[Rfam]
RNA sequence: GGGUGCGGUAGAGGCGCGGUGUAUCAAGAGUAACCCGUGGAGGCGGCGGCCGGUGAAGCGGGCGAAAGGGGUCACCGCCGAAGUCCUGCAGCUGGCGGGCUGCUGGGCUGGGACUGCAUCGAACAGAUGCAGUACUGUCACCUGAAGCUGCCCGGGCUUCAGGUGGAGCGCUAUCACACGC
Numbered sequence: 001g002g003g004u005g006c007g008g009u010a011g012a013g014g015c016g017c018g019g020u021g022u023a024u025c026a027a028g029a030g031u032a033a034c035c036c037g038u039g040g041a042g043g044c045g046g047c048g049g050c051c052g053g054u055g056a057a058g059c060g061g062g063c064g065a066a067a068g069g070g071g072u073c074a075c076c077g078c079c080g081a082a083g084u085c086c087u088g089c090a091g092c093u094g095g096c097g098g099g100c101u102g103c104u105g106g107g108c109u110g111g112g113a114c115u116g117c118a119u120c121g122a123a124c125a126g127a128u129g130c131a132g133u134a135c136u137g138u139c140a141c142c143u144g145a146a147g148c149u150g151c152c153c154g155g156g157c158u159u160c161a162g163g164u165g166g167a168g169c170g171c172u173a174u175c176a177c178a179c180g181c
Stems, first nucleotide, its partner, number of pairs: 007175005016078006023072003034062005082109005088103006110136002113133008138166010